Annotation: The record is an 86-nucleotide RNA from Malus baccata, which matches "MIR398 microRNA precursor family" in Rfam. A reference for the family is Zeng et al. (2010), "Conservation and divergence of microRNAs and their functions in Euphorbiaceous plants", Nucleic Acids Res. Lineage of the source: Eukaryota > Viridiplantae > fabids > Rosaceae > Malus.

RNA sequence: AGGGGUUCUGCAGGAGUGACCUGAGAUCACAUAUGGUGUUAUGUGUUACGCUUGAUGUGUUCUCAGGUCGCCCCUGCGGUACCUUC
Dot-bracket structure: .......(..((((.((((...((((.(((((......................))))).))))...)))).))))..).......
Numbered sequence: 001a002g003g004g005g006u007u008c009u010g011c012a013g014g015a016g017u018g019a020c021c022u023g024a025g026a027u028c029a030c031a032u033a034u035g036g037u038g039u040u041a042u043g044u045g046u047u048a049c050g051c052u053u054g055a056u057g058u059g060u061u062c063u064c065a066g067g068u069c070g071c072c073c074c075u076g077c078g079g080u081a082c083c084u085u086c
Stems, first nucleotide, its partner, number of pairs: 008079001011076004016071004023064004028059005